[Rfam]
RNA sequence: GCAGAUCGAGGAAGCGACGACCCGCGACCGUCCCGAACGGUCACCUUCAUCCCCUCGGGGAGACGGUCGCGGCGAGCUAGUGGUGAGACCGGCCUCGAUCGUG
Numbered sequence: 001g002c003a004g005a006u007c008g009a010g011g012a013a014g015c016g017a018c019g020a021c022c023c024g025c026g027a028c029c030g031u032c033c034c035g036a037a038c039g040g041u042c043a044c045c046u047u048c049a050u051c052c053c054c055u056c057g058g059g060g061a062g063a064c065g066g067u068c069g070c071g072g073c074g075a076g077c078u079a080g081u082g083g084u085g086a087g088a089c090c091g092g093c094c095u096c097g098a099u100c101g102u103g
Stems, first nucleotide, its partner, number of pairs: 004100008013078003022072008039090002041086005
Dot-bracket structure: ...((((((((.(((......((((((((.........[[[[[[[...................))))))))...)))...]]]]]..]]..))))))))...
The record is a 103-nucleotide RNA sequence, which matches "c-di-GMP-II-GAG riboswitch aptamer" in Rfam. Rfam's curators put it in the seed alignment. Pairs were carried over by alignment from the consensus structure, which is taken from published work. Rfam links the family to the GO terms regulation of gene expression and cyclic-di-GMP binding. Clan: c-di-GMP_II riboswitch clan.